[Rfam]
RNA: Small nucleolar RNA SNORA4
RNA sequence: CUGCCAAACGUUGGUUUUGAGGGGAAGAUUUUUAGCAGUCUUUGUCAGCUCAAGCUAUGUGGGGAAAUAAAGCCCACACUCCACAGUGAGCUGUAUGAUUUCUAUGCGGUUCAUUACCGUUUUGUGGCCUGGAAG
Numbered sequence: 001c002u003g004c005c006a007a008a009c010g011u012u013g014g015u016u017u018u019g020a021g022g023g024g025a026a027g028a029u030u031u032u033u034a035g036c037a038g039u040c041u042u043u044g045u046c047a048g049c050u051c052a053a054g055c056u057a058u059g060u061g062g063g064g065a066a067a068u069a070a071a072g073c074c075c076a077c078a079c080u081c082c083a084c085a086g087u088g089a090g091c092u093g094u095a096u097g098a099u100u101u102c103u104a105u106g107c108g109g110u111u112c113a114u115u116a117c118c119g120u121u122u123u124g125u126g127g128c129c130u131g132g133a134a135g
Stems, first nucleotide, its partner, number of pairs: 004062003008058001012057006021050002023046002026043001027040004071130002074127005085115012